A member of the RNA family "Bacterial RNase P class A" from Bellilinea caldifistulae, 385 nucleotides long. It is annotated as a ribozyme. The source organism's lineage runs through Bacteria, Bacillati, Anaerolineales, Anaerolineaceae and Bellilinea.
RNA sequence: CGGGCUGGCCGGGUGAUCGCGGCAGUCAUUUUCGGCUGCUGAGGAAAGUCCGCACUCCACAGAGCACGGCGCCGGGUAACACCCGGAGCGGGGUAACCUGCUGGAUCGGGCCACAGAAACAAACCGCUGCCUGUUUCAGGCAGCAAGGGUGAAAAGGUGGUGUAAGAGACCACCGGAGUCCGCAGUAAUGCGGCUGCCAGGCAACCCCCGCCGGGAGCAAAGCCAAGCAGGAACGAGGGGCUGCUCGUCCCGUUUGAGUUCCGGGUAGGCUGCAUAGAACCGUCUGGUAACAGCCGGUCAAGAGAGAUGAUCACCCCACCCGCAGCCGUCCCAAUCGGGAUACCCUGCGGGUGGACAGAAUGCGGCUUACAGGCCAGCCCGGUAC
Numbered sequence: 001c002g003g004g005c006u007g008g009c010c011g012g013g014u015g016a017u018c019g020c021g022g023c024a025g026u027c028a029u030u031u032u033c034g035g036c037u038g039c040u041g042a043g044g045a046a047a048g049u050c051c052g053c054a055c056u057c058c059a060c061a062g063a064g065c066a067c068g069g070c071g072c073c074g075g076g077u078a079a080c081a082c083c084c085g086g087a088g089c090g091g092g093g094u095a096a097c098c099u100g101c102u103g104g105a106u107c108g109g110g111c112c113a114c115a116g117a118a119a120c121a122a123a124c125c126g127c128u129g130c131c132u133g134u135u136u137c138a139g140g141c142a143g144c145a146a147g148g149g150u151g152a153a154a155a156g157g158u159g160g161u162g163u164a165a166g167a168g169a170c171c172a173c174c175g176g177a178g179u180c181c182g183c184a185g186u187a188a189u190g191c192g193g194c195u196g197c198c199a200g201g202c203a204a205c206c207c208c209c210g211c212c213g214g215g216a217g218c219a220a221a222g223c224c225a226a227g228c229a230g231g232a233a234c235g236a237g238g239g240g241c242u243g244c245u246c247g248u249c250c251c252g253u254u255u256g257a258g259u260u261c262c263g264g265g266u267a268g269g270c271u272g273c274a275u276a277g278a279a280c281c282g283u284c285u286g287g288u289a290a291c292a293g294c295c296g297g298u299c300a301a302g303a304g305a306g307a308u309g310a311u312c313a314c315c316c317c318a319c320c321c322g323c324a325g326c327c328g329u330c331c332c333a334a335u336c337g338g339g340a341u342a343c344c345c346u347g348c349g350g351g352u353g354g355a356c357a358g359a360a361u362g363c364g365g366c367u368u369a370c371a372g373g374c375c376a377g378c379c380c381g382g383u384a385c
Stems, first nucleotide, its partner, number of pairs: 001381010011370001012315007020041008046368003050365005055217004062246004067213005072086005087102001089100004103208002108206002110202003124148002126144008156174006176197001177195002180193005221271004230262005237251005279298004284293003
Rfam describes the family as follows. Ribonuclease P (RNase P) is a ubiquitous endoribonuclease, found in archaea, bacteria and eukarya as well as chloroplasts and mitochondria.